[Rfam]
Nucleotides: 125
Stems, first nucleotide, its partner, number of pairs: 001125001003123005009117008018108022041085007
Number, partner (000 for none) and nucleotide at each position: 001125g002000a003123a004122a005121u006120a007119u008000a009117a010116g011115a012114a013113u014112c015111c016110g017000c018108c019107u020106u021105u022104u023103a024102a025101c026100u027099u028098u029097u030096a031095a032094c033093u034092a035091a036090a037089a038088a039087a040000g041085c042084u043083a044082a045081g046080a047079a048000u049000c050000g051000g052000u053000u054000u055000u056000u057000a058000a059000a060000u061000a062000a063000g064000a065000g066000u067000u068000u069000u070000a071000a072000g073000c074000g075000c076000c077000g078000g079047u080046u081045c082044u083043u084042a085041g086000c087039u088038u089037u090036u091035u092034u093033a094032g095031u096030u097029a098028a099027a100026a101025g102024u103023u104022a105021a106020g107019a108018g109000a110016c111015g112014g113013a114012u115011u116010c117009u118000a119007a120006u121005a122004u123003u124000c125001c